[Rfam]
RNA sequence: GCUAUGGAGUGUUAUAUAAAACUGGAGUAGCUUAUGCAAAACAGAACACUAAGAAGUAGUGA
Numbered sequence: 001g002c003u004a005u006g007g008a009g010u011g012u013u014a015u016a017u018a019a020a021a022c023u024g025g026a027g028u029a030g031c032u033u034a035u036g037c038a039a040a041a042c043a044g045a046a047c048a049c050u051a052a053g054a055a056g057u058a059g060u061g062a
Base pairs, nucleotide, nucleotide: 001060002059003058004057005056009049010048011047012046013045022044023043024042030037031036
Rfam assigns this 62-nucleotide RNA sequence from Clostridium sp. SM-530-WT-3G to the family "RAGATH-18 RNA". It scores 61 bits against the family's covariance model. The family's consensus secondary structure is taken from published work. Actinobacteria, Firmicutes, Fusobacteria, Thermotogae (1 example).